S10-Clostridia ribosomal protein leader: an 86-nucleotide sequence from Holtiella tumoricola. By type it is a cis-regulatory leader.
[Rfam]
RNA sequence: UGAGAACGAUGAUUCAGAAGGUUACCGCUUAUAAAAUAAGCAAAUUUCUGAGGAGCGAAUGUCCGGUUCAUGAAACCAGACGACAA
Numbered sequence: 001u002g003a004g005a006a007c008g009a010u011g012a013u014u015c016a017g018a019a020g021g022u023u024a025c026c027g028c029u030u031a032u033a034a035a036a037u038a039a040g041c042a043a044a045u046u047u048c049u050g051a052g053g054a055g056c057g058a059a060u061g062u063c064c065g066g067u068u069c070a071u072g073a074a075a076c077c078a079g080a081c082g083a084c085a086a
Base pairs, nucleotide, nucleotide: 014051015050016049019047020046021045027041028040029039030038031037060085061084062083063082066081067080068079

For this family Rfam cites "Discovery of 20 novel ribosomal leader candidates in bacteria and archaea" (Eckert and Weinberg, BMC Microbiol, 2020). It scores 43 bits against the family's covariance model.